This 73-nucleotide RNA belongs to the Rfam family "DUF3800-IX RNA". From the family's description: Actinobacteria, Firmicutes (1 example), Nitrospirae, Proteobacteria, Verrucomicrobia (1 example).
RNA sequence: GACUUGGCUUCCGAACUGACGCCUUGUAGGUGUGCGUUUCUAGACUUGCUCUAGAAUAGGGGCUAGGUCGCUU
Numbered sequence: 001g002a003c004u005u006g007g008c009u010u011c012c013g014a015a016c017u018g019a020c021g022c023c024u025u026g027u028a029g030g031u032g033u034g035c036g037u038u039u040c041u042a043g044a045c046u047u048g049c050u051c052u053a054g055a056a057u058a059g060g061g062g063c064u065a066g067g068u069c070g071c072u073u
Base pairs, nucleotide, nucleotide: 001069002068003067004066005065006064007063008062010061011060012059017036018035020032021031022030023029038056039055040054041053042052
Overview:
By type it is a small RNA.